[Rfam]
RNA sequence: CGGGUCGGCCGGGCGGUCGCGUCGCGAUGCUUCGGCAGCGCGCCGAGGAACGUCCGGGCUGCGUAGAGGAGAACGGUGGGUAACGCCCACCCGGGGCAACCCGCGAGAAAGUGCAACAGAGAGCAGACCGCCCGGGUCGGUUCGCCGGCCGGGGUAAGGGUGAAAGGGUGGGGUAAGAGCCCACCGGCGCUCGUGGUGACACGGGCGGCCAGGUAAACCUCGUUCGCAGCAAGGCCAGACAGCAGGCGACGACGCUCCUCGCCGAGUCUGCGGGUAGGCCGCUAGAGCCCGUCGGCAACGGCGGGCCGAGAGAGAUGACCGUCACCGGCUCGCAUGCGGGCCGGGACAGAACCCGGCGUACAGGCCGGCCCGUUCC
Numbered sequence: 001c002g003g004g005u006c007g008g009c010c011g012g013g014c015g016g017u018c019g020c021g022u023c024g025c026g027a028u029g030c031u032u033c034g035g036c037a038g039c040g041c042g043c044c045g046a047g048g049a050a051c052g053u054c055c056g057g058g059c060u061g062c063g064u065a066g067a068g069g070a071g072a073a074c075g076g077u078g079g080g081u082a083a084c085g086c087c088c089a090c091c092c093g094g095g096g097c098a099a100c101c102c103g104c105g106a107g108a109a110a111g112u113g114c115a116a117c118a119g120a121g122a123g124c125a126g127a128c129c130g131c132c133c134g135g136g137u138c139g140g141u142u143c144g145c146c147g148g149c150c151g152g153g154g155u156a157a158g159g160g161u162g163a164a165a166g167g168g169u170g171g172g173g174u175a176a177g178a179g180c181c182c183a184c185c186g187g188c189g190c191u192c193g194u195g196g197u198g199a200c201a202c203g204g205g206c207g208g209c210c211a212g213g214u215a216a217a218c219c220u221c222g223u224u225c226g227c228a229g230c231a232a233g234g235c236c237a238g239a240c241a242g243c244a245g246g247c248g249a250c251g252a253c254g255c256u257c258c259u260c261g262c263c264g265a266g267u268c269u270g271c272g273g274g275u276a277g278g279c280c281g282c283u284a285g286a287g288c289c290c291g292u293c294g295g296c297a298a299c300g301g302c303g304g305g306c307c308g309a310g311a312g313a314g315a316u317g318a319c320c321g322u323c324a325c326c327g328g329c330u331c332g333c334a335u336g337c338g339g340g341c342c343g344g345g346a347c348a349g350a351a352c353c354c355g356g357c358g359u360a361c362a363g364g365c366c367g368g369c370c371c372g373u374u375c376c
Stems, first nucleotide, its partner, number of pairs: 001372010011361001012323007020045002023042004028037001050359003054356005059229004066259001068257002071225005076090005091105001092103004106220002111218002113214002128159002130155003135150006167185006187209001188207008233280004242271006250264002253261002287306008
Dot-bracket structure: ((((((((((((((((((.((.((((.(........).)))).))....[[[.[[[[[((((...[.[[.((((((((((.....)))))(((((....)))).)((...((((.............(((((..((((((....))))))..)))..)).......((((((.......)))))).(((((((((....)))))))).)...))..)))))))))))))...((((.....((((((..((.((.]].])).)).)))))).....))))......((((((((....))))))))..........)))))))............................]]]]]]]].).))))))))))....
A member of the RNA family "Bacterial RNase P class A" from Leucobacter soli, 376 nucleotides long.
NCBI's taxonomy places the organism under Bacteria, Actinomycetota, Actinomycetes, Micrococcales, Leucobacter.
The family's consensus secondary structure is taken from published work.